[Rfam]
RNA sequence: AAAUUGCUCAAUAAAUAGACUUCCAAAAUGACGAAAUAAUGUGUAUGAUACGCACCACAAAACGAAGCAGGUUUACUCUGUUUUGUUAAAUUGGCUGAUAGAUAAAAAGUACGGUUUUAGACCGUACUUUUUAUUUUGGAAUCAUUUGAGUUAAAUUUGUUUUGAACUUAAUCAAUGGAUGGGUGA
Numbered sequence: 001a002a003a004u005u006g007c008u009c010a011a012u013a014a015a016u017a018g019a020c021u022u023c024c025a026a027a028a029u030g031a032c033g034a035a036a037u038a039a040u041g042u043g044u045a046u047g048a049u050a051c052g053c054a055c056c057a058c059a060a061a062a063c064g065a066a067g068c069a070g071g072u073u074u075a076c077u078c079u080g081u082u083u084u085g086u087u088a089a090a091u092u093g094g095c096u097g098a099u100a101g102a103u104a105a106a107a108a109g110u111a112c113g114g115u116u117u118u119a120g121a122c123c124g125u126a127c128u129u130u131u132u133a134u135u136u137u138g139g140a141a142u143c144a145u146u147u148g149a150g151u152u153a154a155a156u157u158u159g160u161u162u163u164g165a166a167c168u169u170a171a172u173c174a175a176u177g178g179a180u181g182g183g184u185g186a
Base pairs, nucleotide, nucleotide: 005141007139008138010136011135027099029097030095032093033092040054041053042052043051044050045049103133104132105131106130107129108128109127110126111125112124113123114122115121116120150172151171152170153169154168156166157165158164159163
Background
Shown here is a 186-nucleotide RNA sequence from Vespertiliibacter pulmonis, a member of the family "Actinobacillus sRNA 11". A search with the family's covariance model found it, with a score of 61 bits. Rfam's curators write: Arrc stands for Actinobacillus pleuropneumoniae Regulatory RNA Candidate. TargetRNA2 was used for the predictions. radA gene target may be involved in stress resistance. The family's consensus secondary structure was predicted with RNAfold. Rfam classes the family as a small RNA.